The family of this 377-nucleotide sequence from Limosilactobacillus equigenerosi is "Bacterial RNase P class B". Rfam classes the family as a ribozyme. The literature on the family includes a 1998 paper in Annu Rev Biochem by Frank and Pace, "Ribonuclease P: unity and diversity in a tRNA processing ribozyme". Ribonuclease P (RNase P) is a ubiquitous endoribonuclease, found in archaea, bacteria and eukarya as well as chloroplasts and mitochondria. Its best characterised activity is the generation of mature 5'-ends of tRNAs by cleaving the 5'-leader elements of precursor-tRNAs. Cellular RNase Ps are ribonucleoproteins. RNA from bacterial RNase Ps retains its catalytic activity in the absence of the protein subunit, i.e. it is a ribozyme. Isolated eukaryotic and archaeal RNase P RNA has not been shown to retain its catalytic function, but is still essential for the catalytic activity of the holoenzyme. Although the archaeal and eukaryotic holoenzyme s have a much greater protein content than the bacterial ones, the RNA cores from all the three lineages are homologous -- helices corresponding to P1, P2, P3, P4, and P10/11 are common to all cellular RNase P RNAs. Yet, there is considerable sequence variation, particularly among the eukaryotic RNAs.

RNA sequence: AGCUUCGGGUAAUCGAGCGUAACUUUUGUUAUGUUAGGAAGGUCCAUGCUCGCACAGGCUGCGAUGCCUGUAGUGUUUGUGCUCGCUGAAAAAAUAAGGCGGGGCACCUACUUGAUAGGUGACGGCGGAAAAAAUGGCUACGGUCUUUGACUAUGCCAAAGUAUUCCUGAAAGUGCCACAGUGACGAUACAAUUUGGGAAACCAAGUUGGUGGAACGCGGUAAACCCCUCAAGCGGUAAACCCAAACUUUGGUAGGGGAGCUUUGGAUAACGAAUUGAAGUGAUUCCAGGGGAGUAUCAUUUAUGAUACUGAGAUAGAUGAUUACCACGGUAUUAUUUGGCCUGAAAUAAUACUUUGACAAAACAUGGCCUACAGGA
Numbered sequence: 001a002g003c004u005u006c007g008g009g010u011a012a013u014c015g016a017g018c019g020u021a022a023c024u025u026u027u028g029u030u031a032u033g034u035u036a037g038g039a040a041g042g043u044c045c046a047u048g049c050u051c052g053c054a055c056a057g058g059c060u061g062c063g064a065u066g067c068c069u070g071u072a073g074u075g076u077u078u079g080u081g082c083u084c085g086c087u088g089a090a091a092a093a094a095u096a097a098g099g100c101g102g103g104g105c106a107c108c109u110a111c112u113u114g115a116u117a118g119g120u121g122a123c124g125g126c127g128g129a130a131a132a133a134a135u136g137g138c139u140a141c142g143g144u145c146u147u148u149g150a151c152u153a154u155g156c157c158a159a160a161g162u163a164u165u166c167c168u169g170a171a172a173g174u175g176c177c178a179c180a181g182u183g184a185c186g187a188u189a190c191a192a193u194u195u196g197g198g199a200a201a202c203c204a205a206g207u208u209g210g211u212g213g214a215a216c217g218c219g220g221u222a223a224a225c226c227c228c229u230c231a232a233g234c235g236g237u238a239a240a241c242c243c244a245a246a247c248u249u250u251g252g253u254a255g256g257g258g259a260g261c262u263u264u265g266g267a268u269a270a271c272g273a274a275u276u277g278a279a280g281u282g283a284u285u286c287c288a289g290g291g292g293a294g295u296a297u298c299a300u301u302u303a304u305g306a307u308a309c310u311g312a313g314a315u316a317g318a319u320g321a322u323u324a325c326c327a328c329g330g331u332a333u334u335a336u337u338u339g340g341c342c343u344g345a346a347a348u349a350a351u352a353c354u355u356u357g358a359c360a361a362a363a364c365a366u367g368g369c370c371u372a373c374a375g376g377a
Stems, first nucleotide, its partner, number of pairs: 004377003007373001008326007016035006040371003044368005050236004054071006077232003081228001082103006104123001105121006124227002127167004135158004142152003173225002175221003190209008241257003261291007293310007329354009